[Rfam]
RNA sequence: CAGCGGGUGAAAGUCCCGUCCGGGUAGGCACCGGAGCGCCCGGUAGCAGGCCCCGGUCCUGCGGAGAGAUCCAAUGGGCUGAGCGGGGUGUCAAGAGCCUCUUUGGAGGGAGCAAGAGCGCGGGCCGUAGCGUGA
Numbered sequence: 001c002a003g004c005g006g007g008u009g010a011a012a013g014u015c016c017c018g019u020c021c022g023g024g025u026a027g028g029c030a031c032c033g034g035a036g037c038g039c040c041c042g043g044u045a046g047c048a049g050g051c052c053c054c055g056g057u058c059c060u061g062c063g064g065a066g067a068g069a070u071c072c073a074a075u076g077g078g079c080u081g082a083g084c085g086g087g088g089u090g091u092c093a094a095g096a097g098c099c100u101c102u103u104u105g106g107a108g109g110g111a112g113c114a115a116g117a118g119c120g121c122g123g124g125c126c127g128u129a130g131c132g133u134g135a
Stems, first nucleotide, its partner, number of pairs: 020043005050089005055080005064071002098109004112128002
The family of this 135-nucleotide sequence from Sphaerimonospora thailandensis is "Group II catalytic intron D1-D4-4". A search with the family's covariance model found it, with a score of 98 bits. Group II introns are found in rRNA, tRNA and mRNA of organelles in fungi, plants and protists, and also in mRNA in bacteria.